[Rfam]
RNA sequence: CGCCGUUCUCCGGGGGGUCGCAUCCGAGCGGCUGAGAUUGGCGUGAUCGCCUGACCCGUCGAACCUGAUCCGGGUCAUGCCGGCGAAGGGAUGGGAAACGCUCGGUCCA
Numbered sequence: 001c002g003c004c005g006u007u008c009u010c011c012g013g014g015g016g017g018u019c020g021c022a023u024c025c026g027a028g029c030g031g032c033u034g035a036g037a038u039u040g041g042c043g044u045g046a047u048c049g050c051c052u053g054a055c056c057c058g059u060c061g062a063a064c065c066u067g068a069u070c071c072g073g074g075u076c077a078u079g080c081c082g083g084c085g086a087a088g089g090g091a092u093g094g095g096a097a098a099c100g101c102u103c104g105g106u107c108c109a
Stems, first nucleotide, its partner, number of pairs: 006097005011058004016052001017032005040051004064089003070083004

Notes: The family of this 109-nucleotide sequence from Brevundimonas sp. Root1423 is "TPP riboswitch aptamer (THI element)".